This 328-nucleotide sequence from Salvator merianae belongs to the Rfam family "7SK RNA".
The match comes from Rfam's covariance-model search (287 bits).
On this family, see Wassarman and Steitz, Mol Cell Biol 1991: "Structural analyses of the 7SK ribonucleoprotein (RNP), the most abundant human small RNP of unknown function".
The base pairs follow the family's consensus structure, which is taken from published work.
Lineage of the source: Eukaryota > Teleostomi > Dipnotetrapodomorpha > Sauria > Salvator.
RNA sequence: GGAUGUGAGGGCGAUCUGCUGCGACAUCUGUCAUGCCAUUGAUCACCAGGGUUGAUUCGGCUGAUCUGGCUGGUUAGGCAGGUGUCCCCUUCCUCCCUCACCGCUCCAUGUGCACCCUUCCGAAAGCUGUGUGCUCAGUGCAAGAGGACGACCAGCCCAGAUAGAAGGAGUGUACCGUUCUUCGGUCAAGGAUAUACGAUGGCUGUGCUCCCCUGCUAGAACCUCCAAACAAACGCAAGAUCCAUUUGUAGAAAUGUAGGGUAGUCAAGCGUCCAAGACUCCAGUCACAUCCAAGUAAGGCACUGCAUGUGGCAGUUUGCCAUUCUUU
Numbered sequence: 001g002g003a004u005g006u007g008a009g010g011g012c013g014a015u016c017u018g019c020u021g022c023g024a025c026a027u028c029u030g031u032c033a034u035g036c037c038a039u040u041g042a043u044c045a046c047c048a049g050g051g052u053u054g055a056u057u058c059g060g061c062u063g064a065u066c067u068g069g070c071u072g073g074u075u076a077g078g079c080a081g082g083u084g085u086c087c088c089c090u091u092c093c094u095c096c097c098u099c100a101c102c103g104c105u106c107c108a109u110g111u112g113c114a115c116c117c118u119u120c121c122g123a124a125a126g127c128u129g130u131g132u133g134c135u136c137a138g139u140g141c142a143a144g145a146g147g148a149c150g151a152c153c154a155g156c157c158c159a160g161a162u163a164g165a166a167g168g169a170g171u172g173u174a175c176c177g178u179u180c181u182u183c184g185g186u187c188a189a190g191g192a193u194a195u196a197c198g199a200u201g202g203c204u205g206u207g208c209u210c211c212c213c214u215g216c217u218a219g220a221a222c223c224u225c226c227a228a229a230c231a232a233a234c235g236c237a238a239g240a241u242c243c244a245u246u247u248g249u250a251g252a253a254a255u256g257u258a259g260g261g262u263a264g265u266c267a268a269g270c271g272u273c274c275a276a277g278a279c280u281c282c283a284g285u286c287a288c289a290u291c292c293a294a295g296u297a298a299g300g301c302a303c304u305g306c307a308u309g310u311g312g313c314a315g316u317u318u319g320c321c322a323u324u325c326u327u328u
Base pairs, nucleotide, nucleotide: 001107002106003105005101006100007099008098009097010096011095013092014091018088023086024085025084026083027082028081029080030079031078032077034073036069037068038067041066042065043064044063046060047059116172117167118166119165120164121138124135126134127133139161146157147156202270203269204268208264209263211261212260213259214258215257216256224253226251229249230248231247232246233245293328294327295326297323299321300320301319302316303315304314305313306312

Rfam 15.1 lists 49,373 matches to the family in 668 species.